RNA sequence: AAAAAAAGGAGCAAUACCAAUACUCUUGAUAGAACAAGAAUUUGGAUAUUGCUCCUUUAU
Number, nucleotide and partner (000 for none) at each position: 001a000002a000003a000004a000005a058006a057007a056008g055009g054010a053011g052012c051013a050014a049015u048016a047017c000018c000019a000020a043021u000022a000023c000024u039025c038026u037027u036028g035029a000030u000031a000032g000033a000034a000035c028036a027037a026038g025039a024040a000041u000042u000043u020044g000045g000046a000047u016048a015049u014050u013051g012052c011053u010054c009055c008056u007057u006058u005059a000060u000
Shown here is a 60-nucleotide RNA from Doona zeylanica, a member of the family "Plastid-psbA-4 3UTR RNA". Pairs were carried over by alignment from the consensus structure, which was predicted with LocARNA. Plastid psbA-4 is a non-coding RNA (ncRNA) present in plastids. A reference for the family is Richter et al. (2023), "Retrograde signaling in plants: A critical review focusing on the GUN pathway and beyond", Plant Commun. The sequence is in the family's curated seed alignment.